Annotation:
Rfam assigns this 114-nucleotide sequence from Macaca mulatta to the family "Y RNA". It is annotated as a non-coding RNA gene. Y RNAs are components of the Ro ribonucleoprotein particle (Ro RNP), in association with Ro60 and La proteins. The match comes from Rfam's covariance-model search (60 bits). For this family Rfam cites "Conserved features of Y RNAs: a comparison of experimentally derived secondary structures" (Teunissen et al., Nucleic Acids Res, 2000). NCBI's taxonomy places the organism under Eukaryota, Metazoa, Eutheria, Catarrhini, Macaca.
RNA sequence: AGCUGGUCUGAAGCUAGUGAGUUAUCUCAAUUAACUGACUGUUAAGUCAGUUACAGAUCGAAACCCUUGUUUGUUAUUUCCCCACUUCUCACUACUGCACUUGACUAGUCUUAA
Numbered sequence: 001a002g003c004u005g006g007u008c009u010g011a012a013g014c015u016a017g018u019g020a021g022u023u024a025u026c027u028c029a030a031u032u033a034a035c036u037g038a039c040u041g042u043u044a045a046g047u048c049a050g051u052u053a054c055a056g057a058u059c060g061a062a063a064c065c066c067u068u069g070u071u072u073g074u075u076a077u078u079u080c081c082c083c084a085c086u087u088c089u090c091a092c093u094a095c096u097g098c099a100c101u102u103g104a105c106u107a108g109u110c111u112u113a114a
Stems, first nucleotide, its partner, number of pairs: 002109007010102002015097001016093006040076002044072004